The family of this 120-nucleotide RNA sequence from a Clostridiales bacterium is "FMN riboswitch aptamer (RFN element)".
Its family is annotated with FMN binding in the Gene Ontology.
The source organism's lineage runs through Bacteria, Bacillati, Bacillota, Clostridia and Eubacteriales.
[Rfam]
RNA sequence: CACUUUCUUCAGGGCGGGGUGAAAGUCCCCACCGGCGGUCAGAGCCCGCGAACCCCGAAAGGGGUCGACCCGGUUGAAUUCCGGGGCCGACAGUAACAGUCUGGAUGGGAGAAGGAAGGA
Numbered sequence: 001c002a003c004u005u006u007c008u009u010c011a012g013g014g015c016g017g018g019g020u021g022a023a024a025g026u027c028c029c030c031a032c033c034g035g036c037g038g039u040c041a042g043a044g045c046c047c048g049c050g051a052a053c054c055c056c057g058a059a060a061g062g063g064g065u066c067g068a069c070c071c072g073g074u075u076g077a078a079u080u081c082c083g084g085g086g087c088c089g090a091c092a093g094u095a096a097c098a099g100u101c102u103g104g105a106u107g108g109g110a111g112a113a114g115g116a117a118g119g120a
Stems, first nucleotide, its partner, number of pairs: 003118008017029003031100002033089002035049004044087002052065003069085005091103003